[Rfam]
RNA sequence: AACCCGACUUUUGUGUCCGGGCAUAGACACAUACCUCCCUGUUGUACUGGGCCGGACUUGUUCCGGCCCCUUUUU
Number, nucleotide and partner (000 for none) at each position: 001a000002a000003c000004c000005c000006g000007a000008c000009u000010u000011u000012u031013g030014u029015g028016u027017c026018c000019g000020g000021g000022c000023a000024u000025a000026g017027a016028c015029a014030c013031a012032u000033a000034c000035c000036u000037c000038c000039c000040u000041g000042u000043u000044g000045u000046a000047c000048u000049g069050g068051g067052c066053c065054g064055g063056a062057c000058u000059u000060g000061u000062u056063c055064c054065g053066g052067c051068c050069c049070c000071u000072u000073u000074u000075u000
A member of the RNA family "Singlet oxygen resistance RNA X" from Sulfitobacter aestuariivivens, 75 nucleotides long. A reference for the family is Peng et al. (2016), "Regulation of a polyamine transporter by the conserved 3' UTR-derived sRNA SorX confers resistance to singlet oxygen and organic hydroperoxides in Rhodobacter sphaeroides", RNA Biol. The family's RNA type in Rfam is small RNA. Rfam describes the family as follows. SorX (RSs2461)like SorY is a singlet oxygen induced sRNA that counteracts oxidative stress by targeting mRNA for a transporter in Rhodobacter. It also has an impact on resistance against organic hydroperoxides. Rfam 15.1 lists 528 matches to the family in 356 species.